[Rfam]
Description: This 102-nucleotide RNA from Bacillus sp. DNRA2 belongs to the Rfam family "Purine riboswitch aptamer". The family's consensus secondary structure is taken from published work. Lineage of the source: Bacteria > Bacillati > Caryophanales > Bacillaceae > Bacillus.
RNA sequence: AGAAUAUAAUAGAUUUACCAUCGUAUAAUAUUGGGGAUAAGGCCCAAGAGUUUCUACCGAGCUGCCGUAAAUAGCUUGACUACGAGGUAAAGUGUAAUAUAU
Numbered sequence: 001a002g003a004a005u006a007u008a009a010u011a012g013a014u015u016u017a018c019c020a021u022c023g024u025a026u027a028a029u030a031u032u033g034g035g036g037a038u039a040a041g042g043c044c045c046a047a048g049a050g051u052u053u054c055u056a057c058c059g060a061g062c063u064g065c066c067g068u069a070a071a072u073a074g075c076u077u078g079a080c081u082a083c084g085a086g087g088u089a090a091a092g093u094g095u096a097a098u099a100u101a102u
Base pairs, nucleotide, nucleotide: 019087021085022084023083024082025081029049031047032046033045034044035043058078059077060076061075062074063073064072